[Rfam]
RNA sequence: GGUCUAUAAUUAUUCCAGGACUUAAAGUGGGUUCAGUAACGACGCGCACUUGUCCGAUAUUAGCAUCGUAAAGUCCGCCAAAAAACAUGGCUUUUGCUACUAACAACAAAGCCCCUAUUCCUAAGAAAAUCAAGUGAUUUCCUAAAAUAAAACUCAAUUUUUUGGGGUCGUCCCA
Numbered sequence: 001g002g003u004c005u006a007u008a009a010u011u012a013u014u015c016c017a018g019g020a021c022u023u024a025a026a027g028u029g030g031g032u033u034c035a036g037u038a039a040c041g042a043c044g045c046g047c048a049c050u051u052g053u054c055c056g057a058u059a060u061u062a063g064c065a066u067c068g069u070a071a072a073g074u075c076c077g078c079c080a081a082a083a084a085a086c087a088u089g090g091c092u093u094u095u096g097c098u099a100c101u102a103a104c105a106a107c108a109a110a111g112c113c114c115c116u117a118u119u120c121c122u123a124a125g126a127a128a129a130u131c132a133a134g135u136g137a138u139u140u141c142c143u144a145a146a147a148u149a150a151a152a153c154u155c156a157a158u159u160u161u162u163u164g165g166g167g168u169c170g171u172c173c174c175a
Base pairs, nucleotide, nucleotide: 134171135170136169137168138167141166142165143164144163145162

Rfam assigns this 175-nucleotide RNA from Chroococcidiopsis thermalis to the family "Antisense RNA which regulates isiA expression". For this family Rfam cites "An internal antisense RNA regulates expression of the photosynthesis gene isiA" (Duhring et al., Proc Natl Acad Sci U S A, 2006).